[Rfam]
RNA sequence: AUGUAAACUGGCGAUGGGGUCCGCCUUCAACCGCCUGAAGCAAAUGUUUUCGGGAUGAUGACUUCUACUGGGAU
Numbered sequence: 001a002u003g004u005a006a007a008c009u010g011g012c013g014a015u016g017g018g019g020u021c022c023g024c025c026u027u028c029a030a031c032c033g034c035c036u037g038a039a040g041c042a043a044a045u046g047u048u049u050u051c052g053g054g055a056u057g058a059u060g061a062c063u064u065c066u067a068c069u070g071g072g073a074u
Base pairs, nucleotide, nucleotide: 010025011024012023013022016065017064018063019062020061021060034054035053036052037051038050039049040048

The family of this 74-nucleotide RNA sequence from Desulfobacca acetoxidans is "Fluoride riboswitch aptamer (crcB RNA motif)". Lineage of the source: Bacteria > Pseudomonadati > Desulfobaccia > Desulfobaccales > Desulfobacca acetoxidans.